[Rfam]
RNA: MAT2A 3'UTR stem loop F
RNA sequence: CCCGGGCGCGUGGCGCAUUUGGCCGGUGUGGUACAGAGAAGCCGGCUUGUUUACCUGCCCGCCCCGGG
Numbered sequence: 001c002c003c004g005g006g007c008g009c010g011u012g013g014c015g016c017a018u019u020u021g022g023c024c025g026g027u028g029u030g031g032u033a034c035a036g037a038g039a040a041g042c043c044g045g046c047u048u049g050u051u052u053a054c055c056u057g058c059c060c061g062c063c064c065c066g067g068g
Stems, first nucleotide, its partner, number of pairs: 001068006012059003017050002021047007028034002